RNA: MIR394 microRNA precursor family
RNA sequence: UUUACAGAGCCACUUUGGCAUGCUGGCCACCUCCAAAAGAAUAUAGGCCCAUGAUGUGCAUGGAGGUGGACAGAAUGCCAAAAUGGCUCUGCAAC
Numbered sequence: 001u002u003u004a005c006a007g008a009g010c011c012a013c014u015u016u017g018g019c020a021u022g023c024u025g026g027c028c029a030c031c032u033c034c035a036a037a038a039g040a041a042u043a044u045a046g047g048c049c050c051a052u053g054a055u056g057u058g059c060a061u062g063g064a065g066g067u068g069g070a071c072a073g074a075a076u077g078c079c080a081a082a083a084u085g086g087c088u089c090u091g092c093a094a095c
Stems, first nucleotide, its partner, number of pairs: 011085001015081006024072002027069008